S10-Clostridia ribosomal protein leader: a 94-nucleotide RNA from Pseudogracilibacillus auburnensis. A reference for the family is Eckert and Weinberg (2020), "Discovery of 20 novel ribosomal leader candidates in bacteria and archaea", BMC Microbiol.
RNA sequence: GAUAAGCGAUGAAGUGAGAGGUUGUUGAUGCGGACUAUUGCCAUGGCGAGCGUCAAGUAAUUUUCACGGAGUAUGUCUAUUAUAAAAUGGACGA
Numbered sequence: 001g002a003u004a005a006g007c008g009a010u011g012a013a014g015u016g017a018g019a020g021g022u023u024g025u026u027g028a029u030g031c032g033g034a035c036u037a038u039u040g041c042c043a044u045g046g047c048g049a050g051c052g053u054c055a056a057g058u059a060a061u062u063u064u065c066a067c068g069g070a071g072u073a074u075g076u077c078u079a080u081u082a083u084a085a086a087a088u089g090g091a092c093g094a
Stems, first nucleotide, its partner, number of pairs: 014067003018064004025056007074093004
Dot-bracket structure: .............(((.((((...(((((((..................)))))))....)))))))......((((............)))).